Shown here is a 70-nucleotide sequence from Kitasatospora griseola, a member of the family "tRNA". It is annotated as a transfer RNA. The organism belongs to Kitasatospora, within Bacteria.
RNA sequence: GGUUGUGUGGUGUAACUGGUAACACGCUGCUUUUGCAAAGCAGAGAAGCGGUUCGAAUCCGACACGAUCC
Numbered sequence: 001g002g003u004u005g006u007g008u009g010g011u012g013u014a015a016c017u018g019g020u021a022a023c024a025c026g027c028u029g030c031u032u033u034u035g036c037a038a039a040g041c042a043g044a045g046a047a048g049c050g051g052u053u054c055g056a057a058u059c060c061g062a063c064a065c066g067a068u069c070c
Base pairs, nucleotide, nucleotide: 001069002068003067004066005065006064007063010025011024012023013022027043028042029041030040031039049061050060051059